The family of this 55-nucleotide sequence from Austrofundulus limnaeus is "ES003 sRNA". About the family: Differentially expressed under several chemical stress and fermentation conditions. It is annotated as a small RNA. A search with the family's covariance model found it, with a score of 37 bits. Gene Ontology term of the family: fermentation. The organism belongs to Austrofundulus, within Eukaryota.
RNA sequence: ACUCACUAGAAACUCAUCAGUGAGUAGAACUGUAUUAUUUAAAGGGGCAAUAUUA
Numbered sequence: 001a002c003u004c005a006c007u008a009g010a011a012a013c014u015c016a017u018c019a020g021u022g023a024g025u026a027g028a029a030c031u032g033u034a035u036u037a038u039u040u041a042a043a044g045g046g047g048c049a050a051u052a053u054u055a
Stems, first nucleotide, its partner, number of pairs: 001025007009018002033055002036052004